[Rfam]
RNA sequence: ACGGUUCCGGUUCACGCCCGCCAUAGGGGUUGGCGACCCGGGCC
Number, nucleotide and partner (000 for none) at each position: 001a000002c000003g044004g043005u042006u000007c041008c040009g039010g038011u000012u000013c000014a000015c035016g034017c033018c032019c000020g030021c029022c028023a000024u000025a000026g000027g000028g022029g021030u020031u000032g018033g017034c016035g015036a000037c000038c010039c009040g008041g007042g005043c004044c003